The family of this 306-nucleotide sequence from Carnegiea gigantea is "Plant signal recognition particle RNA".
It is annotated as a non-coding RNA gene.
Taxonomically the source falls in Carnegiea (Eukaryota, Streptophyta, Embryophyta, Pentapetalae).
[Rfam]
RNA sequence: GCCGAGCUCAGUCACGUAAGCUUGUGACCCAAGUGGGGGCAUUAAAGUGGUGGAACGUGGGCUCAGUGAAUCGGGUAGGAUCUAUGAUGGUCAGAGACUGGCUUGCCCUCUCCAAGUUGAGAGUUGACCCAAGUGAAGCAGGCGUAGGCUUGGUUCAGUUGGGCCCUAAAGUGGCGGGAACUGCGUGAGGCUGGCUUGACAGAGCAACGAUCACUGCCCGCUCUUGUCAGUGGAAGGACAACAAGCCAGUGCCAUCUGGAUCCAAUGGUGCCCAGUUGACCGUGUCCCUAUAGAACCAUCACCUUU
Numbered sequence: 001g002c003c004g005a006g007c008u009c010a011g012u013c014a015c016g017u018a019a020g021c022u023u024g025u026g027a028c029c030c031a032a033g034u035g036g037g038g039g040c041a042u043u044a045a046a047g048u049g050g051u052g053g054a055a056c057g058u059g060g061g062c063u064c065a066g067u068g069a070a071u072c073g074g075g076u077a078g079g080a081u082c083u084a085u086g087a088u089g090g091u092c093a094g095a096g097a098c099u100g101g102c103u104u105g106c107c108c109u110c111u112c113c114a115a116g117u118u119g120a121g122a123g124u125u126g127a128c129c130c131a132a133g134u135g136a137a138g139c140a141g142g143c144g145u146a147g148g149c150u151u152g153g154u155u156c157a158g159u160u161g162g163g164c165c166c167u168a169a170a171g172u173g174g175c176g177g178g179a180a181c182u183g184c185g186u187g188a189g190g191c192u193g194g195c196u197u198g199a200c201a202g203a204g205c206a207a208c209g210a211u212c213a214c215u216g217c218c219c220g221c222u223c224u225u226g227u228c229a230g231u232g233g234a235a236g237g238a239c240a241a242c243a244a245g246c247c248a249g250u251g252c253c254a255u256c257u258g259g260a261u262c263c264a265a266u267g268g269u270g271c272c273c274a275g276u277u278g279a280c281c282g283u284g285u286c287c288c289u290a291u292a293g294a295a296c297c298a299u300c301a302c303c304u305u306u
Stems, first nucleotide, its partner, number of pairs: 001040003004023005010017001028037003044305002047302007056293001058290003061285002064282001066280001069277003073273005078263007088254003092251002098249008107237002111234004116228001118226007126165001128163005134157004139152005166171001173218005184209003191202003